[Rfam]
The record is a 77-nucleotide sequence from Thryothorus ludovicianus, which matches "Small nucleolar RNA SNORD83" in Rfam. The family's RNA type in Rfam is C/D-box small nucleolar RNA. A search with the family's covariance model found it, with a score of 57 bits. Its family is annotated with nucleolus and RNA processing in the Gene Ontology. A reference for the family is Jady and Kiss (2000), "Characterisation of the U83 and U84 small nucleolar RNAs: two novel 2'-O-ribose methylation guide RNAs that lack complementarities to ribosomal RNAs", Nucleic Acids Res.
RNA sequence: GCCAAAUGAUGUCAAUUUAGACAGCAUUAGCUCUCAGGGCAAAGAUGACCAUCAUCUAUCACCCCAUGCUGAUGGCU
Numbered sequence: 001g002c003c004a005a006a007u008g009a010u011g012u013c014a015a016u017u018u019a020g021a022c023a024g025c026a027u028u029a030g031c032u033c034u035c036a037g038g039g040c041a042a043a044g045a046u047g048a049c050c051a052u053c054a055u056c057u058a059u060c061a062c063c064c065c066a067u068g069c070u071g072a073u074g075g076c077u
Base pairs, nucleotide, nucleotide: 001076002075003074004073030040031039032038033037